Background: This 80-nucleotide RNA sequence from Physeter macrocephalus belongs to the Rfam family "Small nucleolar RNA SNORD115". For this family Rfam cites "Identification of brain-specific and imprinted small nucleolar RNA genes exhibiting an unusual genomic organization" (Cavaille et al., Proc Natl Acad Sci U S A, 2000). The match comes from Rfam's covariance-model search (82 bits). Taxonomically the source falls in Physeter (Eukaryota, Craniata, Amniota, Whippomorpha).

RNA sequence: GGGUCAGUGACGAGAACUCAUACGGUCAUGAAGAGAGAUGAGGACCAAAAAUCAUGCUCAAUAGGAUAACGCUGAGGCCC
Numbered sequence: 001g002g003g004u005c006a007g008u009g010a011c012g013a014g015a016a017c018u019c020a021u022a023c024g025g026u027c028a029u030g031a032a033g034a035g036a037g038a039u040g041a042g043g044a045c046c047a048a049a050a051a052u053c054a055u056g057c058u059c060a061a062u063a064g065g066a067u068a069a070c071g072c073u074g075a076g077g078c079c080c
Base pairs, nucleotide, nucleotide: 001080002079003078004077005074006073008071009070